A member of the RNA family "Rhodo-rpoB RNA" from Sagittula salina, 96 nucleotides long.
The organism belongs to Sagittula, within Bacteria.
Rfam classes the family as a cis-regulatory element.
A search with the family's covariance model found it, with a score of 61 bits.
RNA sequence: AGAUCGAGUGGCGCGCGGUGGGACGCGUGCCGAGAAUGGAUCGUCAACCAGCCGUCACUGACGUGAACCGCCGCUGUGGCCCCGGCAGCGUGCAGG
Numbered sequence: 001a002g003a004u005c006g007a008g009u010g011g012c013g014c015g016c017g018g019u020g021g022g023a024c025g026c027g028u029g030c031c032g033a034g035a036a037u038g039g040a041u042c043g044u045c046a047a048c049c050a051g052c053c054g055u056c057a058c059u060g061a062c063g064u065g066a067a068c069c070g071c072c073g074c075u076g077u078g079g080c081c082c083c084g085g086c087a088g089c090g091u092g093c094a095g096g
Stems, first nucleotide, its partner, number of pairs: 002042004010031008068095001070093002072090005